[Rfam]
RNA: Small nucleolar RNA Z279/snoR105/snoR108
Organism: Macleaya cordata
RNA sequence: GGGAUGUGAUGAGUGGUCAAAACUCGCACUAUUUUGGAUGCGUGAUGGGUGUCCGCCCCAAGCCUGGUUACGACAACUUGGGCACUCCCUUCUUUUACCAAUCUGAUCCC
Numbered sequence: 001g002g003g004a005u006g007u008g009a010u011g012a013g014u015g016g017u018c019a020a021a022a023c024u025c026g027c028a029c030u031a032u033u034u035u036g037g038a039u040g041c042g043u044g045a046u047g048g049g050u051g052u053c054c055g056c057c058c059c060a061a062g063c064c065u066g067g068u069u070a071c072g073a074c075a076a077c078u079u080g081g082g083c084a085c086u087c088c089c090u091u092c093u094u095u096u097a098c099c100a101a102u103c104u105g106a107u108c109c110c
Stems, first nucleotide, its partner, number of pairs: 001110004014100004023044001025042003047087007065080002067077002